[Rfam]
RNA sequence: CUAUAUAGCUAGGGGUGCCUCGAGGCUGAGAGUCCGAAAGGUCGGACGACCCUCACAACCUGACCUGGGUAAUACCAGCGUAGGGAAGCCGGUUCCAGAGCGG
Numbered sequence: 001c002u003a004u005a006u007a008g009c010u011a012g013g014g015g016u017g018c019c020u021c022g023a024g025g026c027u028g029a030g031a032g033u034c035c036g037a038a039a040g041g042u043c044g045g046a047c048g049a050c051c052c053u054c055a056c057a058a059c060c061u062g063a064c065c066u067g068g069g070u071a072a073u074a075c076c077a078g079c080g081u082a083g084g085g086a087a088g089c090c091g092g093u094u095c096c097a098g099a100g101c102g103g
Stems, first nucleotide, its partner, number of pairs: 006091001008089003011053004017026003033046005059084004065078004